The record is an 80-nucleotide RNA sequence from Esox lucius, which matches "mir-219 microRNA precursor family" in Rfam. Gene Ontology terms of the family: miRNA-mediated post-transcriptional gene silencing and RISC complex. A reference for the family is Lim et al. (2003), "Vertebrate microRNA genes", Science. The family's consensus secondary structure was predicted with RNAalifold. A search with the family's covariance model found it, with a score of 73 bits.
RNA sequence: CUUGCAGUUGAUUGUCCAAACGCAAUUCUUGUGAAAUUUCAAACACAACCCGAGAAUUGUGCAUGGACAUCUGUUGCUAG
Number, nucleotide and partner (000 for none) at each position: 001c000002u079003u000004g077005c076006a075007g074008u000009u000010g071011a070012u069013u000014g068015u067016c066017c065018a064019a000020a000021c061022g060023c059024a058025a057026u056027u055028c054029u053030u052031g051032u000033g000034a000035a000036a000037u000038u000039u000040c000041a000042a000043a000044c000045a000046c000047a000048a000049c000050c000051c031052g030053a029054g028055a027056a026057u025058u024059g023060u022061g021062c000063a000064u018065g017066g016067a015068c014069a012070u011071c010072u000073g000074u007075u006076g005077c004078u000079a002080g000